RNA sequence: UUUUUUUUUACGAAAGAAGUGGAGUAAAGCUUGCCGUGAGAAGUCAGCAGACGCCAUAGUAGUGCAAUACUCGAUAACGUUGCAUGAAGGGC
Numbered sequence: 001u002u003u004u005u006u007u008u009u010a011c012g013a014a015a016g017a018a019g020u021g022g023a024g025u026a027a028a029g030c031u032u033g034c035c036g037u038g039a040g041a042a043g044u045c046a047g048c049a050g051a052c053g054c055c056a057u058a059g060u061a062g063u064g065c066a067a068u069a070c071u072c073g074a075u076a077a078c079g080u081u082g083c084a085u086g087a088a089g090g091g092c
Base pairs, nucleotide, nucleotide: 001027002026004023005022006021008019009018011016043052044051045050053092054091055090062085063084064083065082066081067080

Rfam assigns this 92-nucleotide RNA sequence from Hallella multisaccharivorax to the family "Group II catalytic intron D1-D4-1". A search with the family's covariance model found it, with a score of 54 bits. Lineage of the source: Bacteria > Pseudomonadati > Bacteroidia > Hallella > Hallella multisaccharivorax.